[Rfam]
RNA sequence: UCUGCGAUAAUCUCGCACUUGGGGCACACAUACAGUGUACUUGUUACGCAAUCAGCCCCGGGAAGGUCUGAGAUGAGCCUUCAAUGCUCUAGGAGGGCGCUUGCAUUUUGCAAGGCAAGGACACCAGAAAUCUGCGAGAGGGGUUCUUUGGCCAAGGAUUGGCUUUAGCAUAGGCGAUGGAACUUUCUCGUUGGAAUUUCUUGUGGCUGGCGUUUUUAGUUCAAUCUGCGGGCUAGUGUUACACUAGAACUCAAUUCAGACUAAUCUGUCGCAGA
Numbered sequence: 001u002c003u004g005c006g007a008u009a010a011u012c013u014c015g016c017a018c019u020u021g022g023g024g025c026a027c028a029c030a031u032a033c034a035g036u037g038u039a040c041u042u043g044u045u046a047c048g049c050a051a052u053c054a055g056c057c058c059c060g061g062g063a064a065g066g067u068c069u070g071a072g073a074u075g076a077g078c079c080u081u082c083a084a085u086g087c088u089c090u091a092g093g094a095g096g097g098c099g100c101u102u103g104c105a106u107u108u109u110g111c112a113a114g115g116c117a118a119g120g121a122c123a124c125c126a127g128a129a130a131u132c133u134g135c136g137a138g139a140g141g142g143g144u145u146c147u148u149u150g151g152c153c154a155a156g157g158a159u160u161g162g163c164u165u166u167a168g169c170a171u172a173g174g175c176g177a178u179g180g181a182a183c184u185u186u187c188u189c190g191u192u193g194g195a196a197u198u199u200c201u202u203g204u205g206g207c208u209g210g211c212g213u214u215u216u217u218a219g220u221u222c223a224a225u226c227u228g229c230g231g232g233c234u235a236g237u238g239u240u241a242c243a244c245u246a247g248a249a250c251u252c253a254a255u256u257c258a259g260a261c262u263a264a265u266c267u268g269u270c271g272c273a274g275a
Stems, first nucleotide, its partner, number of pairs: 001275004007269003012232006021059005035049005068259005076208004085099005100114005115204007135190001233247006
A member of the RNA family "Nuclear RNase P" from Asbolus verrucosus, 275 nucleotides long. By type it is a ribozyme. The match comes from Rfam's covariance-model search (159 bits). About the family: Ribonuclease P (RNase P) is a ubiquitous endoribonuclease, found in archaea, bacteria and eukarya as well as chloroplasts and mitochondria. Pairs were carried over by alignment from the consensus structure, which is taken from published work.